[Rfam]
RNA sequence: CAACGGCGCACGAAAACGCCGAUGCCUGAUAGAGGCUCGUCCCCCGCCUCAUCAGACAAAAGGACAAAGGCUCCAUCCCCCCUCUCCGGCCUUUGUCCACUAAAGUACCGCCAUGGCCCGCCCCCCUCCAGGCCAUGGCGGUUAUAU
Numbered sequence: 001c002a003a004c005g006g007c008g009c010a011c012g013a014a015a016a017c018g019c020c021g022a023u024g025c026c027u028g029a030u031a032g033a034g035g036c037u038c039g040u041c042c043c044c045c046g047c048c049u050c051a052u053c054a055g056a057c058a059a060a061a062g063g064a065c066a067a068a069g070g071c072u073c074c075a076u077c078c079c080c081c082c083u084c085u086c087c088g089g090c091c092u093u094u095g096u097c098c099a100c101u102a103a104a105g106u107a108c109c110g111c112c113a114u115g116g117c118c119c120g121c122c123c124c125c126c127u128c129c130a131g132g133c134c135a136u137g138g139c140g141g142u143u144a145u146a147u
Stems, first nucleotide, its partner, number of pairs: 026055005034048003062098010105143001108141011
A member of the RNA family "Alphaproteobacterial sRNA ar7" from Martelella mediterranea, 147 nucleotides long. The base pairs follow the family's consensus structure. On this family, see del Val et al., RNA Biol 2012: "A survey of sRNA families in alpha-proteobacteria".